[Rfam]
Nucleotides: 077
Base pairs, nucleotide, nucleotide: 015044016043017042021077022076023075024074025073026072027071028040029039048066049065050064051063052062053061
Number, partner (000 for none) and nucleotide at each position: 001000g002000g003000u004000u005000g006000c007000a008000a009000g010000u011000u012000u013000a014000a015044g016043g017042c018000c019000a020000u021077a022076g023075c024074a025073g026072a027071a028040g029039u030000c031000c032000u033000c034000a035000c036000a037000g038000c039029g040028u041000a042017g043016c044015c045000u046000g047000c048066c049065a050064g051063a052062u053061u054000c055000u056000a057000a058000c059000a060000a061053a062052a063051u064050c065049u066048g067000u068000g069000a070000a071027u072026u073025c074024u075023g076022c077021u
The family of this 77-nucleotide RNA from Alligator sinensis is "Mammalian CPEB3 ribozyme". The organism belongs to Alligator, within Eukaryota. The match comes from Rfam's covariance-model search (37 bits).